[Rfam]
RNA sequence: GGCUCGGGAGCAGACCGGUGGGACGGUCCGCAGGAAUUGAGCCCAGCACUUCUGUUUCGCAAGCGGCAGCACGUCCGAGGCCCGUCGGCACGCGCG
Numbered sequence: 001g002g003c004u005c006g007g008g009a010g011c012a013g014a015c016c017g018g019u020g021g022g023a024c025g026g027u028c029c030g031c032a033g034g035a036a037u038u039g040a041g042c043c044c045a046g047c048a049c050u051u052c053u054g055u056u057u058c059g060c061a062a063g064c065g066g067c068a069g070c071a072c073g074u075c076c077g078a079g080g081c082c083c084g085u086c087g088g089c090a091c092g093c094g095c096g
Stems, first nucleotide, its partner, number of pairs: 001043005010031002013028005069095002072092001075088003